[Rfam]
Notes:
Small nucleolar RNA Z161/Z228: a 93-nucleotide sequence from Macleaya cordata. Its family is annotated with RNA processing and nucleolus in the Gene Ontology. Its Rfam clan is "SNORD35 clan".
RNA sequence: UACCAGGUGAUGAAAAUGGAUUUUAAUUUCUCACGACGGUCAUCAGAGACUUUGUGUCCAUGUUGAUUCAAAGAUCCAAUCUUUCUGAUGGUA
Numbered sequence: 001u002a003c004c005a006g007g008u009g010a011u012g013a014a015a016a017u018g019g020a021u022u023u024u025a026a027u028u029u030c031u032c033a034c035g036a037c038g039g040u041c042a043u044c045a046g047a048g049a050c051u052u053u054g055u056g057u058c059c060a061u062g063u064u065g066a067u068u069c070a071a072a073g074a075u076c077c078a079a080u081c082u083u084u085c086u087g088a089u090g091g092u093a
Stems, first nucleotide, its partner, number of pairs: 001093002003090001048058003